RNA sequence: CUUGGUAUUCUUCCACAGCUUUCUUGAACUGCAACUUCGUCGUAGAUCGUUGGUUGCCUGUUGUUGUUAAUGGUGCAUCCAUGUGGGCGGUAUACUGUUAUUUUUGUUGCGGUUCAAUAAAGCUGUGGGAAGAUACACACA
Numbered sequence: 001c002u003u004g005g006u007a008u009u010c011u012u013c014c015a016c017a018g019c020u021u022u023c024u025u026g027a028a029c030u031g032c033a034a035c036u037u038c039g040u041c042g043u044a045g046a047u048c049g050u051u052g053g054u055u056g057c058c059u060g061u062u063g064u065u066g067u068u069a070a071u072g073g074u075g076c077a078u079c080c081a082u083g084u085g086g087g088c089g090g091u092a093u094a095c096u097g098u099u100a101u102u103u104u105u106g107u108u109g110c111g112g113u114u115c116a117a118u119a120a121a122g123c124u125g126u127g128g129g130a131a132g133a134u135a136c137a138c139a140c141a
Base pairs, nucleotide, nucleotide: 005136006135007134013128014127015126017124018123019122020121021120022119024117025116026115027114029112030111031110032109033108034107035106
RNA: MIR396 microRNA precursor family